[Rfam]
RNA sequence: UGGCACCCAACGUGGGGCUGGAUACUGGGGGACAACGUGAGGGUCUGACGACGAAGGAAGAAGGGGUGCGCACCCAAUGAAACAAAAGUUCGGAGACGUCACGGUAGCCUGCUGUGACCGAGCCGACAGGUAAGUUGGUCAUUCAAUCAUGGGGCAAGAAUUGAGUCAGCAUCAGAAAUAUGUAGUCCAGUUAAAAGAAGCUUUACAGGCAAGAGGAGUAAAGGUUACAACCGAAGAUUUAUUUCAUUUCUUUGAUUUUGUGAAAGACAUCUGCCCAU
Numbered sequence: 001u002g003g004c005a006c007c008c009a010a011c012g013u014g015g016g017g018c019u020g021g022a023u024a025c026u027g028g029g030g031g032a033c034a035a036c037g038u039g040a041g042g043g044u045c046u047g048a049c050g051a052c053g054a055a056g057g058a059a060g061a062a063g064g065g066g067u068g069c070g071c072a073c074c075c076a077a078u079g080a081a082a083c084a085a086a087a088g089u090u091c092g093g094a095g096a097c098g099u100c101a102c103g104g105u106a107g108c109c110u111g112c113u114g115u116g117a118c119c120g121a122g123c124c125g126a127c128a129g130g131u132a133a134g135u136u137g138g139u140c141a142u143u144c145a146a147u148c149a150u151g152g153g154g155c156a157a158g159a160a161u162u163g164a165g166u167c168a169g170c171a172u173c174a175g176a177a178a179u180a181u182g183u184a185g186u187c188c189a190g191u192u193a194a195a196a197g198a199a200g201c202u203u204u205a206c207a208g209g210c211a212a213g214a215g216g217a218g219u220a221a222a223g224g225u226u227a228c229a230a231c232c233g234a235a236g237a238u239u240u241a242u243u244u245c246a247u248u249u250c251u252u253u254g255a256u257u258u259u260g261u262g263a264a265a266g267a268c269a270u271c272u273g274c275c276c277a278u
Stems, first nucleotide, its partner, number of pairs: 006030003012025003036050003090130002092127001097120002100116005140154001142153004162205003165201002213253006222240005263278001266275001268273001
RNA: Mason-Pfizer monkey virus packaging signal